[Rfam]
RNA sequence: GCCUGGUGGUUCCUUGAGGCUGCUCAUCUGUGCUGAUCAUCAAGGUUGUAUUUCACAGGCAAAUAGUAAGUUCUUCAAUUUAAUGCUUGGGAGUUGCCUACAUCUGUGACUUCCAAAGCCCGGUUGGAGAAAUAUUC
Numbered sequence: 001g002c003c004u005g006g007u008g009g010u011u012c013c014u015u016g017a018g019g020c021u022g023c024u025c026a027u028c029u030g031u032g033c034u035g036a037u038c039a040u041c042a043a044g045g046u047u048g049u050a051u052u053u054c055a056c057a058g059g060c061a062a063a064u065a066g067u068a069a070g071u072u073c074u075u076c077a078a079u080u081u082a083a084u085g086c087u088u089g090g091g092a093g094u095u096g097c098c099u100a101c102a103u104c105u106g107u108g109a110c111u112u113c114c115a116a117a118g119c120c121c122g123g124u125u126g127g128a129g130a131a132a133u134a135u136u137c
Stems, first nucleotide, its partner, number of pairs: 001060004007050002012045006019037001020035001022033002073129001075127006085119002087116004092111006
The record is a 137-nucleotide RNA from Pangasianodon hypophthalmus, which matches "Small nucleolar RNA SNORA84" in Rfam. The literature on the family includes a 2002 paper in Curr Biol by Marker et al., "Experimental RNomics: identification of 140 candidates for small non-messenger RNAs in the plant Arabidopsis thaliana". By type it is an H/ACA-box small nucleolar RNA. Rfam 15.1 lists 757 matches to the family in 629 species. Its family is annotated with nucleolus and RNA processing in the Gene Ontology.